A member of the RNA family "c-di-GMP-I riboswitch aptamer" from Aliidiomarina soli, 89 nucleotides long. NCBI's taxonomy places the organism under Bacteria, Pseudomonadati, Pseudomonadota, Gammaproteobacteria, Aliidiomarina. Its family is annotated with cyclic-di-GMP binding in the Gene Ontology. It scores 74 bits against the family's covariance model.

[Rfam]
RNA sequence: AUAUUGAAAAGGCAAACUCAUCGAAAGGUGGGGACGCAAAGCUACCUGUCUAAAGAAUGGCAACAUUCCAGGAUCGAGGGGAUACCAAA
Numbered sequence: 001a002u003a004u005u006g007a008a009a010a011g012g013c014a015a016a017c018u019c020a021u022c023g024a025a026a027g028g029u030g031g032g033g034a035c036g037c038a039a040a041g042c043u044a045c046c047u048g049u050c051u052a053a054a055g056a057a058u059g060g061c062a063a064c065a066u067u068c069c070a071g072g073a074u075c076g077a078g079g080g081g082a083u084a085c086c087a088a089a
Base pairs, nucleotide, nucleotide: 012037013036017032018031019030020029021028022027040083042081043080045079046078047077048074049073050072055068056067057066058065